This 425-nucleotide part of an RNA from Wallemia ichthyophaga belongs to the Rfam family "Eukaryotic large subunit ribosomal RNA".
RNA sequence: CGACCUCAAAUCAGAUGGGAUUACCCGCUGAACUUAAGCAUAUCAAUAAGCGGAGGAAAAGAAACUAACAAGGAUUCCCCUAGUAAUGGCGAAUGAAGAGGGAAAAGCUCAAAUUUAAAAGCUGUUAUCUUUCAGGUAACCGCAUUGUAAUCUAAAGAAGUGUUUUCUGUUUUAGCCUACAUAUAAGUACUCUGGAAUGAGUUGGCAUAGAGGGUGAAACUCCCGUCUUUGAUGUAGAUUACUAAAGCUUUGUGAUACACUUUCUAAGAGUCGAGUUGUUUGGGAAUGCAGCUCAAAAUGGGUGGUAAAUUCCAUCUAAAGCUAAAUAUUGGCCUGAGACCGAUAGCGAACAAGUACCGUGAGGGAAAGAUGAAAAGCACUUUGGAAAGAGAGUCAAAUAGAACGUGAAAUUGCUGAAAGGGAAG
Numbered sequence: 001c002g003a004c005c006u007c008a009a010a011u012c013a014g015a016u017g018g019g020a021u022u023a024c025c026c027g028c029u030g031a032a033c034u035u036a037a038g039c040a041u042a043u044c045a046a047u048a049a050g051c052g053g054a055g056g057a058a059a060a061g062a063a064a065c066u067a068a069c070a071a072g073g074a075u076u077c078c079c080c081u082a083g084u085a086a087u088g089g090c091g092a093a094u095g096a097a098g099a100g101g102g103a104a105a106a107g108c109u110c111a112a113a114u115u116u117a118a119a120a121g122c123u124g125u126u127a128u129c130u131u132u133c134a135g136g137u138a139a140c141c142g143c144a145u146u147g148u149a150a151u152c153u154a155a156a157g158a159a160g161u162g163u164u165u166u167c168u169g170u171u172u173u174a175g176c177c178u179a180c181a182u183a184u185a186a187g188u189a190c191u192c193u194g195g196a197a198u199g200a201g202u203u204g205g206c207a208u209a210g211a212g213g214g215u216g217a218a219a220c221u222c223c224c225g226u227c228u229u230u231g232a233u234g235u236a237g238a239u240u241a242c243u244a245a246a247g248c249u250u251u252g253u254g255a256u257a258c259a260c261u262u263u264c265u266a267a268g269a270g271u272c273g274a275g276u277u278g279u280u281u282g283g284g285a286a287u288g289c290a291g292c293u294c295a296a297a298a299u300g301g302g303u304g305g306u307a308a309a310u311u312c313c314a315u316c317u318a319a320a321g322c323u324a325a326a327u328a329u330u331g332g333c334c335u336g337a338g339a340c341c342g343a344u345a346g347c348g349a350a351c352a353a354g355u356a357c358c359g360u361g362a363g364g365g366a367a368a369g370a371u372g373a374a375a376a377g378c379a380c381u382u383u384g385g386a387a388a389g390a391g392a393g394u395c396a397a398a399u400a401g402a403a404c405g406u407g408a409a410a411u412u413g414c415u416g417a418a419a420g421g422g423a424a425g
Stems, first nucleotide, its partner, number of pairs: 024055001025053005035042002065072002076103004086094002106323004113151003118146002121143002124140004157264002159261004164257001166255002169248007177237006187203001189202004206210001213223002273294007300317005357364002380391004

For this family Rfam cites "Crystal structure of the ribosome at 5.5 A resolution" (Yusupov et al., Science, 2001). Rfam links the family to the GO terms structural constituent of ribosome and ribosome.